[Rfam]
Source information: The family of this 87-nucleotide RNA from Paenalkalicoccus suaedae is "c-di-GMP-I riboswitch aptamer".

RNA sequence: GCUAGAAAAAGGCAAACCUCGCCGAAAGGGAGGGACGCAAAGCCAUGAGCCUACGUGCGAUUCGCAUACGGUCGUCAGGUUGCCUAG
Numbered sequence: 001g002c003u004a005g006a007a008a009a010a011g012g013c014a015a016a017c018c019u020c021g022c023c024g025a026a027a028g029g030g031a032g033g034g035a036c037g038c039a040a041a042g043c044c045a046u047g048a049g050c051c052u053a054c055g056u057g058c059g060a061u062u063c064g065c066a067u068a069c070g071g072u073c074g075u076c077a078g079g080u081u082g083c084c085u086a087g
Stems, first nucleotide, its partner, number of pairs: 012038002017033004022029002041081004046077003049072003056066004

Description: Its family is annotated with cyclic-di-GMP binding in the Gene Ontology. Pairs were carried over by alignment from the consensus structure, which is taken from published work. The source organism's lineage runs through Bacteria, Bacillati, Bacillota, Caryophanales and Paenalkalicoccus.